mir-21 microRNA precursor family: a 59-nucleotide sequence from Ictalurus punctatus. The source organism's lineage runs through Eukaryota, Teleostomi, Teleostei, Ostariophysi and Ictalurus. Gene Ontology terms of the family: miRNA-mediated post-transcriptional gene silencing and RISC complex.
[Rfam]
RNA sequence: UAGCUUAUCAGACUGGUGUUGGCUUUGAGUUUUUGGCAACAGCAGUCUAAUAGGCUGUC
Dot-bracket structure: ((((((((..(((((.(((((.(...........).))))).)))))..))))))))..